Shown here is a 73-nucleotide RNA, a member of the family "tRNA".
[Rfam]
RNA sequence: GGCUCCAUAGCUCAGGGGUUAGAGCACUGGUCUUGUAAACCAGGGGUCGCGAGUUCAAAUCUCGCUGGGGCCU
Numbered sequence: 001g002g003c004u005c006c007a008u009a010g011c012u013c014a015g016g017g018g019u020u021a022g023a024g025c026a027c028u029g030g031u032c033u034u035g036u037a038a039a040c041c042a043g044g045g046g047u048c049g050c051g052a053g054u055u056c057a058a059a060u061c062u063c064g065c066u067g068g069g070g071c072c073u
Base pairs, nucleotide, nucleotide: 001072002071003070004069005068006067007066010025011024012023013022027043028042029041030040031039049065050064051063052062053061